[Rfam]
RNA: Rhizobiales sRNA Atu_At1
Organism: Affinirhizobium straminoryzae
RNA sequence: AACCGGGCUGUGUCAAGCGGACGCGACGGCGAUGAAGAACAUGGGCAUUUUUCCGCUUUCUGCCCAUGGCCGACGAAUUGGCAGGCGAGCUUCCCACCCGUCCGGCCC
Dot-bracket structure: .....((((.((((.....)))).(((((....((((..(((((((...............)))))))(((........))).......))))....))))).)))).
Numbered sequence: 001a002a003c004c005g006g007g008c009u010g011u012g013u014c015a016a017g018c019g020g021a022c023g024c025g026a027c028g029g030c031g032a033u034g035a036a037g038a039a040c041a042u043g044g045g046c047a048u049u050u051u052u053c054c055g056c057u058u059u060c061u062g063c064c065c066a067u068g069g070c071c072g073a074c075g076a077a078u079u080g081g082c083a084g085g086c087g088a089g090c091u092u093c094c095c096a097c098c099c100g101u102c103c104g105g106c107c108c
Stems, first nucleotide, its partner, number of pairs: 006107004011023004025102005034093004040068007069082003